[Rfam]
Rfam assigns this 98-nucleotide RNA sequence from Triticum aestivum to the family "Plastid-rps12 3UTR RNA". A reference for the family is Richter et al. (2023), "Retrograde signaling in plants: A critical review focusing on the GUN pathway and beyond", Plant Commun. Rfam describes the family as follows. Plastid rpl20 is a non-coding RNA (ncRNA) recognised in plastids.
RNA sequence: GGUUUCUUUUGGUGCAAAUCCAAUGACCUAAAUUGGAAAUAAGAAGCAAUUCACCCAUCAAGAGCAAUUGGUUAUACAUUAUGCGGAGGAAAUAGUAA
Numbered sequence: 001g002g003u004u005u006c007u008u009u010u011g012g013u014g015c016a017a018a019u020c021c022a023a024u025g026a027c028c029u030a031a032a033u034u035g036g037a038a039a040u041a042a043g044a045a046g047c048a049a050u051u052c053a054c055c056c057a058u059c060a061a062g063a064g065c066a067a068u069u070g071g072u073u074a075u076a077c078a079u080u081a082u083g084c085g086g087a088g089g090a091a092a093u094a095g096u097a098a
Base pairs, nucleotide, nucleotide: 009023010022011021012020052088055086056085057079058078061075063073064072065071

The family has 1,299 seed sequences and 1,710 matches in Rfam 15.1. NCBI's taxonomy places the organism under Eukaryota, Embryophyta, Tracheophyta, Poales, Triticum.